Overview
The record is a 138-nucleotide RNA sequence from Parambassis ranga, which matches "Small nucleolar RNA SNORA8" in Rfam. It scores 50 bits against the family's covariance model. From the family's description: ACA8 is a member of the H/ACA class of snoRNA that guide the sites of modification of uridines to pseudouridines. Its family is annotated with nucleolus and RNA processing in the Gene Ontology.
RNA sequence: GGCACUGUGUGGUAUCUGCAGCCAGCUGCUUCAUCAACUGGUAUGUUCAUAAGUCAGUGCUAGAUUAGCUCAACAUCUGGCAUCGUUGGUCUUCAUGCUCCUUGUGUGUGGAGUCCUGGUAUAUUUGUUGAAACAUUC
Numbered sequence: 001g002g003c004a005c006u007g008u009g010u011g012g013u014a015u016c017u018g019c020a021g022c023c024a025g026c027u028g029c030u031u032c033a034u035c036a037a038c039u040g041g042u043a044u045g046u047u048c049a050u051a052a053g054u055c056a057g058u059g060c061u062a063g064a065u066u067a068g069c070u071c072a073a074c075a076u077c078u079g080g081c082a083u084c085g086u087u088g089g090u091c092u093u094c095a096u097g098c099u100c101c102u103u104g105u106g107u108g109u110g111g112a113g114u115c116c117u118g119g120u121a122u123a124u125u126u127g128u129u130g131a132a133a134c135a136u137u138c
Stems, first nucleotide, its partner, number of pairs: 002060006014054002017051001018046003023041001024039002027036002064126001068122001070119003080107004